This 107-nucleotide RNA sequence from Haloplasma contractile belongs to the Rfam family "S10-Clostridia ribosomal protein leader". For this family Rfam cites "Discovery of 20 novel ribosomal leader candidates in bacteria and archaea" (Eckert and Weinberg, BMC Microbiol, 2020). The base pairs follow the family's consensus structure, which is taken from published work. It is annotated as a cis-regulatory leader. NCBI's taxonomy places the organism under Bacteria, Mycoplasmatota, Haloplasmatales, Haloplasmataceae, Haloplasma contractile.
[Rfam]
RNA sequence: AGAAGGCUGUGAAGUGAAAGGUUGCUGACACACCCGGGUGCAUUGUUUUGGCAAAAUGGUGUAAUCAGGUAAUUUUCAUGGAGCAAGUCUAUUUUAAAAAUAGGCGA
Numbered sequence: 001a002g003a004a005g006g007c008u009g010u011g012a013a014g015u016g017a018a019a020g021g022u023u024g025c026u027g028a029c030a031c032a033c034c035c036g037g038g039u040g041c042a043u044u045g046u047u048u049u050g051g052c053a054a055a056a057u058g059g060u061g062u063a064a065u066c067a068g069g070u071a072a073u074u075u076u077c078a079u080g081g082a083g084c085a086a087g088u089c090u091a092u093u094u095u096a097a098a099a100a101u102a103g104g105c106g107a
Stems, first nucleotide, its partner, number of pairs: 014079003018076004025068004088107002093104003